[Rfam]
RNA sequence: UCCUGCCAGGCUGUGGUUGCGGACGGACGAAAUGCCCGUCCUAGUCCAAGACAGACGCGGUCAAAGGGAUCCACGUAAGCGACCGCGUGCGCGCGUCGCGAUCAUGGCGCGUCCUAGAUGUAAGCCGCACCGUCCGUUCUACUUUCUUUGGGGCAAUACCGCCUCGCGGGCGAGCGGGCCAGUCGUGAAGGUGGCUGCGGCCUCCCGAGCAAACACCCCGGUGCGCAAGUGUGGGGUCAAAUACCAGGUCAGCUGGUGGGA
Numbered sequence: 001u002c003c004u005g006c007c008a009g010g011c012u013g014u015g016g017u018u019g020c021g022g023a024c025g026g027a028c029g030a031a032a033u034g035c036c037c038g039u040c041c042u043a044g045u046c047c048a049a050g051a052c053a054g055a056c057g058c059g060g061u062c063a064a065a066g067g068g069a070u071c072c073a074c075g076u077a078a079g080c081g082a083c084c085g086c087g088u089g090c091g092c093g094c095g096u097c098g099c100g101a102u103c104a105u106g107g108c109g110c111g112u113c114c115u116a117g118a119u120g121u122a123a124g125c126c127g128c129a130c131c132g133u134c135c136g137u138u139c140u141a142c143u144u145u146c147u148u149u150g151g152g153g154c155a156a157u158a159c160c161g162c163c164u165c166g167c168g169g170g171c172g173a174g175c176g177g178g179c180c181a182g183u184c185g186u187g188a189a190g191g192u193g194g195c196u197g198c199g200g201c202c203u204c205c206c207g208a209g210c211a212a213a214c215a216c217c218c219c220g221g222u223g224c225g226c227a228a229g230u231g232u233g234g235g236g237u238c239a240a241a242u243a244c245c246a247g248g249u250c251a252g253c254u255g256g257u258g259g260g261a
Base pairs, nucleotide, nucleotide: 001261002260003259004258005257006256007255008254009253011252012251013250014246015245016244017243048232050230051061054113055112056111057110058109059108070107071106075102081096105239126225127224128223129222130221131172132171133170134169135168136167137166176218177217178216185210186209193202194201
The record is a 261-nucleotide RNA sequence, which matches "raiA RNA" in Rfam. Rfam's curators put it in the seed alignment.